The family of this 122-nucleotide RNA from Streptomyces luteoverticillatus is "Streptomyces-metH RNA". Rfam classes the family as a small RNA. The source organism's lineage runs through Bacteria, Actinomycetes, Kitasatosporales, Streptomycetaceae and Streptomyces.

RNA sequence: AUGGUCCAGACCGUGGACGCCCCUCGGCCUACAGGCGUCCCGACGGCUACGCUUGCGGCGUGCGCCCCCUUCAGCGGGGGCGCAAAGCCGACAGCCGUCGCACACCCGGGAGCACAUCCAUG
Numbered sequence: 001a002u003g004g005u006c007c008a009g010a011c012c013g014u015g016g017a018c019g020c021c022c023c024u025c026g027g028c029c030u031a032c033a034g035g036c037g038u039c040c041c042g043a044c045g046g047c048u049a050c051g052c053u054u055g056c057g058g059c060g061u062g063c064g065c066c067c068c069c070u071u072c073a074g075c076g077g078g079g080g081c082g083c084a085a086a087g088c089c090g091a092c093a094g095c096c097g098u099c100g101c102a103c104a105c106c107c108g109g110g111a112g113c114a115c116a117u118c119c120a121u122g
Stems, first nucleotide, its partner, number of pairs: 061084004066079004087101002090099003